[Rfam]
RNA sequence: AAUAGGAGCAUGACAAAUCAUAUUUUUUUCCUCUUGAUUUUUAGUAUUUUUAGUUGGAUUUGAAUUUUUUCAGGAGGAAAAAGUUGAAAAUCAGAAGGAAAAAUCUGAUUUGUCAUCCUCCUAUU
Numbered sequence: 001a002a003u004a005g006g007a008g009c010a011u012g013a014c015a016a017a018u019c020a021u022a023u024u025u026u027u028u029u030c031c032u033c034u035u036g037a038u039u040u041u042u043a044g045u046a047u048u049u050u051u052a053g054u055u056g057g058a059u060u061u062g063a064a065u066u067u068u069u070u071c072a073g074g075a076g077g078a079a080a081a082a083g084u085u086g087a088a089a090a091u092c093a094g095a096a097g098g099a100a101a102a103a104u105c106u107g108a109u110u111u112g113u114c115a116u117c118c119u120c121c122u123a124u125u
Stems, first nucleotide, its partner, number of pairs: 001125008010116011022104006031097002034094008043085002047081004